[Rfam]
RNA sequence: UGCUUGCUGAUUAUAGCUAAUUACAUUGGCAAUAUAUGCUAUGCUCACUUUGUUUUGAUGAAAAGUUGGAUAUGAGAGCU
Dot-bracket structure: .((((......................................................................)))).